Annotation
The record is a 75-nucleotide sequence from Tupaia belangeri, which matches "mir-328 microRNA precursor family" in Rfam. It scores 94 bits against the family's covariance model. Its family is annotated with RISC complex and miRNA-mediated post-transcriptional gene silencing in the Gene Ontology. Lineage of the source: Eukaryota > Theria > Euarchontoglires > Tupaia > Tupaia belangeri.
RNA sequence: UGGAGCGGGGGGGCAGGAGGGGCUCAGGGAGGAAGCCUGUAUAGCCCCUGGCCCUCUCUGCCCUUCCGUCCCAGU
Numbered sequence: 001u002g003g004a005g006c007g008g009g010g011g012g013g014c015a016g017g018a019g020g021g022g023c024u025c026a027g028g029g030a031g032g033a034a035g036c037c038u039g040u041a042u043a044g045c046c047c048c049u050g051g052c053c054c055u056c057u058c059u060g061c062c063c064u065u066c067c068g069u070c071c072c073a074g075u
Stems, first nucleotide, its partner, number of pairs: 002071003006068001008066010019055005025050005